Source information: Rfam assigns this 80-nucleotide RNA from Podarcis muralis to the family "mir-16 microRNA precursor family". It scores 82 bits against the family's covariance model. Rfam 15.1 lists 4,705 matches to the family in 758 species.
RNA sequence: GUUCCGCCCUAGCAGCACGUAAAUAUUGGUGUAGUGAAGAUGAUCUUAACCCCAAUAUUAUUGUGCUGCUUAAGCGUAGC
Numbered sequence: 001g002u003u004c005c006g007c008c009c010u011a012g013c014a015g016c017a018c019g020u021a022a023a024u025a026u027u028g029g030u031g032u033a034g035u036g037a038a039g040a041u042g043a044u045c046u047u048a049a050c051c052c053c054a055a056u057a058u059u060a061u062u063g064u065g066c067u068g069c070u071u072a073a074g075c076g077u078a079g080c
Stems, first nucleotide, its partner, number of pairs: 001080003005076003010073001011070008020060001022059008
Dot-bracket structure: (((.(((..(((((((((.(.((((((((......................)))))))))..))))))))..)))).)))